[Rfam]
RNA sequence: AUAAAGGAGCAAUAACCAAAUUCUUGUUCUAUCAAGAGUGUUGAUUAUUGUUCCUUUACUUUC
Dot-bracket structure: .((((((((((((((.(((..(((((......)))))...))).)))))))))))))).....
Numbered sequence: 001a002u003a004a005a006g007g008a009g010c011a012a013u014a015a016c017c018a019a020a021u022u023c024u025u026g027u028u029c030u031a032u033c034a035a036g037a038g039u040g041u042u043g044a045u046u047a048u049u050g051u052u053c054c055u056u057u058a059c060u061u062u063c
Stems, first nucleotide, its partner, number of pairs: 002058014017043003022037005